[Rfam]
RNA sequence: CUCCACGCGCGGCCGGGACAGGAGCGGGGGAACCACGUUCCUCCGGGCGUCCUGCCUCGGCAGGCGUCCUUGGGGUGAAGCCAGCUGCCUUGAUGUGCUGGCCGGGCUCCCCGCCCGAACCCGACAGCUCACCUCGUAGGCGCCCGGGAAAGGGCUC
Numbered sequence: 001c002u003c004c005a006c007g008c009g010c011g012g013c014c015g016g017g018a019c020a021g022g023a024g025c026g027g028g029g030g031a032a033c034c035a036c037g038u039u040c041c042u043c044c045g046g047g048c049g050u051c052c053u054g055c056c057u058c059g060g061c062a063g064g065c066g067u068c069c070u071u072g073g074g075g076u077g078a079a080g081c082c083a084g085c086u087g088c089c090u091u092g093a094u095g096u097g098c099u100g101g102c103c104g105g106g107c108u109c110c111c112c113g114c115c116c117g118a119a120c121c122c123g124a125c126a127g128c129u130c131a132c133c134u135c136g137u138a139g140g141c142g143c144c145c146g147g148g149a150a151a152g153g154g155c156u157c
Stems, first nucleotide, its partner, number of pairs: 002023003024137006034072002073122003081101004104116004